[Rfam]
RNA sequence: GCCCUGUGGUUCCUGGAGGCUGUUUUUCUAUGCAGUUCUGCAGGUUGUUUUAAAUGGGCAAAUAUGAACUCUGCGAUUUCUUGCAUGGAGUCUGUGUUAAUUGCAGCCUCCAUAGCCCGGUUGCAGGGACAAAU
Number, nucleotide and partner (000 for none) at each position: 001g059002c058003c057004c056005u000006g000007u000008g049009g000010u000011u000012c044013c043014u042015g041016g000017a039018g000019g036020c035021u034022g033023u032024u000025u000026u000027u000028c000029u000030a000031u000032g023033c022034a021035g020036u019037u000038c000039u017040g000041c015042a014043g013044g012045u000046u000047g000048u000049u008050u000051u000052a000053a000054a000055u000056g004057g003058g002059c001060a000061a000062a000063u000064a000065u000066g000067a000068a000069c000070u000071c126072u000073g124074c123075g122076a121077u120078u119079u000080c000081u000082u000083g116084c115085a113086u112087g111088g110089a000090g108091u000092c106093u105094g104095u103096g102097u000098u000099a000100a000101u000102u096103g095104c094105a093106g092107c000108c090109u000110c088111c087112a086113u085114a000115g084116c083117c000118c000119g078120g077121u076122u075123g074124c073125a000126g071127g000128g000129a000130c000131a000132a000133a000134u000
The record is a 134-nucleotide RNA from Atractosteus spatula, which matches "Small nucleolar RNA SNORA84" in Rfam. Taxonomically the source falls in Atractosteus (Eukaryota, Eumetazoa, Vertebrata, Actinopterygii). The literature on the family includes a 2002 paper in Curr Biol by Marker et al., "Experimental RNomics: identification of 140 candidates for small non-messenger RNAs in the plant Arabidopsis thaliana". Rfam classes the family as an H/ACA-box small nucleolar RNA. Rfam links the family to the GO terms RNA processing and nucleolus. A search with the family's covariance model found it, with a score of 91 bits.